The family of this 94-nucleotide sequence is "dinG RNA".
The sequence is in the family's curated seed alignment.
RNA sequence: AAUGGUACUCCUCCGAGAAAACCGGAGCCGAGCAGCGCGGAGGCGCGAUUCGGGGAAGCGUCGCUUAGGUUGGGAUAGACCUUUGGGGGCUUCC
Dot-bracket structure: ..........(((((.......)))))(((((................)))))((((((..(....((((........))))....).))))))
Pairs were carried over by alignment from the consensus structure, which is taken from published work. It is annotated as a small RNA.